[Rfam]
The record is a 109-nucleotide RNA sequence from Musa balbisiana, which matches "Plastid-psbA-1 3UTR RNA" in Rfam. It scores 77 bits against the family's covariance model. The family's consensus secondary structure was predicted with LocARNA. It is annotated as a cis-regulatory element. Rfam's curators write: Plastid psbA-1 is a non-coding RNA (ncRNA) present in plastids. It was identified in inverted repeat sequences in the 3 prime untranslate region (3UTR) of photosystem II quinone-binding protein (psbA). The source organism's lineage runs through Eukaryota, Viridiplantae, Streptophyta, Liliopsida and Musa.

RNA sequence: UCGAAGUUCAUCUACAAAGGAUAAGUUUGUUCUUAGUGUAUACGAAUCGUUGCAACCAAGUAGCAUACCCAAUGUCUUGCUUUAGCAAGACAUGGGGUAUUGCUACUUU
Numbered sequence: 001u002c003g004a005a006g007u008u009c010a011u012c013u014a015c016a017a018a019g020g021a022u023a024a025g026u027u028u029g030u031u032c033u034u035a036g037u038g039u040a041u042a043c044g045a046a047u048c049g050u051u052g053c054a055a056c057c058a059a060g061u062a063g064c065a066u067a068c069c070c071a072a073u074g075u076c077u078u079g080c081u082u083u084a085g086c087a088a089g090a091c092a093u094g095g096g097g098u099a100u101u102g103c104u105a106c107u108u109u
Stems, first nucleotide, its partner, number of pairs: 008021002011018001058108008066099003070095001072093001074091005